[Rfam]
Rfam assigns this 91-nucleotide sequence to the family "GA-cis RNA".
RNA sequence: CUUAGGAGGAACCGCUAUGAACGAAGUUCAUAAUAGGAAUCGGUUCCGACGACCUGUCCCGCUCGUGUGAGCGAGAGGGGCGAUACAUAUU
Numbered sequence: 001c002u003u004a005g006g007a008g009g010a011a012c013c014g015c016u017a018u019g020a021a022c023g024a025a026g027u028u029c030a031u032a033a034u035a036g037g038a039a040u041c042g043g044u045u046c047c048g049a050c051g052a053c054c055u056g057u058c059c060c061g062c063u064c065g066u067g068u069g070a071g072c073g074a075g076a077g078g079g080g081c082g083a084u085a086c087a088u089a090u091u
Stems, first nucleotide, its partner, number of pairs: 008047006016032006056081005063074004
The sequence is in the family's curated seed alignment.